[Rfam]
RNA sequence: UCCUCUUUGUCGGAUAGAAAAAUAUUUAUUUAGAUACUCCACUUCGUUGCACAUUAUUCGUAAUCACAUCGUCCUGUAGUUUUAAGUUUCAGUUAUUUUUUUCCCGCAUUAUCGCCUCUAACAGGGCUUAUUAACUACACAGGAUUUAUCAUUAUGUCUAAUACAAUUACUGGUUCAGUAAAAUGGUUCAACGAAGCUAAAGGUUUCGGUUUCAUCGAGCGCGAAAACGGCGCUGACGUAUUCGCUCAUUUCAGCGCAAUCGCCAGCACUGGCUUCAAAACGCUGGCUGAAGGCCAACGCGUUGAGUUUUCUGUAACUCAGGGUCCUAAAGGCCCACAGGCAGAAAACAUCGUAGCGAUCUAAAUCGCCUGCGAAAGACCUUUUAAAAGGCAAGCCCUAACAGGCUUGCCUUUUUUC
Dot-bracket structure: (.(((...........((..(((.(((.(.......((......(((((.(.(((...((((((......(((((((.(.......................)..........(((........)))...........))))))).....)))))).(((.(......).)))...........))))))))).))...).))....))))))...))).).....((((....((.....))..(.((.(....((....((((((..(........)..)))))).....).)...).)).)......)))).......((..((...)).)).....(.(.........).)...(((...(((....))).)))......((((((((((((......))))))))))))...